A member of the RNA family "Eukaryotic large subunit ribosomal RNA" from Biomphalaria glabrata, 489 nucleotides of a longer RNA. The source organism's lineage runs through Eukaryota, Bilateria, Mollusca, Hygrophila and Biomphalaria. A search with the family's covariance model found it, with a score of 3111 bits.
[Rfam]
RNA sequence: GGUAGUAGCAAAUAUUCAAACGAGAACUUUGAAGACUGAAGUGGAGAAGGGUUCCAUGUGAACAGCAGUUGAACAUGGGUCAGUCGGUCCUAAGAGAUAGGAAAACUCCGUUCUGACUCGGGGGCAAAGCUAAUGAAUAAUACAUUUUUAUUAUUAUUGGUUGCUCGACUCUUAUCGAAAGGGAAUCGGGUUAAUAUUCCCGAACCUGGACACGGAGAUUGGUCCUUUGGGGCCACGUGCGGCAACGCAAACGAAGUGGGGGACGUCGGCGGGAGCCCCGGGAAGAGUUCUCUUUUCUUUGUAAGGGGCUUCAUCCCUGGAAUCGGCUUGCCCGGAGAUAGGGACAAUGGCUCCGUAAAGCACCGCGGCUCUUGCGGUGUCCGGUGCGCUCCUGUCGGCCCUUGAAAACCCCACGGAGACGGUGUGAAUUUCGUGCCAGGCCGUACCCAUAUCCGCAGCAGGUCUCCGAGGUGAACAGCCUCUAGUCGA
Numbered sequence: 001g002g003u004a005g006u007a008g009c010a011a012a013u014a015u016u017c018a019a020a021c022g023a024g025a026a027c028u029u030u031g032a033a034g035a036c037u038g039a040a041g042u043g044g045a046g047a048a049g050g051g052u053u054c055c056a057u058g059u060g061a062a063c064a065g066c067a068g069u070u071g072a073a074c075a076u077g078g079g080u081c082a083g084u085c086g087g088u089c090c091u092a093a094g095a096g097a098u099a100g101g102a103a104a105a106c107u108c109c110g111u112u113c114u115g116a117c118u119c120g121g122g123g124g125c126a127a128a129g130c131u132a133a134u135g136a137a138u139a140a141u142a143c144a145u146u147u148u149u150a151u152u153a154u155u156a157u158u159g160g161u162u163g164c165u166c167g168a169c170u171c172u173u174a175u176c177g178a179a180a181g182g183g184a185a186u187c188g189g190g191u192u193a194a195u196a197u198u199c200c201c202g203a204a205c206c207u208g209g210a211c212a213c214g215g216a217g218a219u220u221g222g223u224c225c226u227u228u229g230g231g232g233c234c235a236c237g238u239g240c241g242g243c244a245a246c247g248c249a250a251a252c253g254a255a256g257u258g259g260g261g262g263a264c265g266u267c268g269g270c271g272g273g274a275g276c277c278c279c280g281g282g283a284a285g286a287g288u289u290c291u292c293u294u295u296u297c298u299u300u301g302u303a304a305g306g307g308g309c310u311u312c313a314u315c316c317c318u319g320g321a322a323u324c325g326g327c328u329u330g331c332c333c334g335g336a337g338a339u340a341g342g343g344a345c346a347a348u349g350g351c352u353c354c355g356u357a358a359a360g361c362a363c364c365g366c367g368g369c370u371c372u373u374g375c376g377g378u379g380u381c382c383g384g385u386g387c388g389c390u391c392c393u394g395u396c397g398g399c400c401c402u403u404g405a406a407a408a409c410c411c412c413a414c415g416g417a418g419a420c421g422g423u424g425u426g427a428a429u430u431u432c433g434u435g436c437c438a439g440g441c442c443g444u445a446c447c448c449a450u451a452u453c454c455g456c457a458g459c460a461g462g463u464c465u466c467c468g469a470g471g472u473g474a475a476c477a478g479c480c481u482c483u484a485g486u487c488g489a
Stems, first nucleotide, its partner, number of pairs: 015033006034487004043467004049447002054078006063071002085443003089182002094176002096112003100109003119167003186203005206439004228433005234426001238249004256414006265399004270394007278384003282300005305354005314344006323335004361379007453462002469481004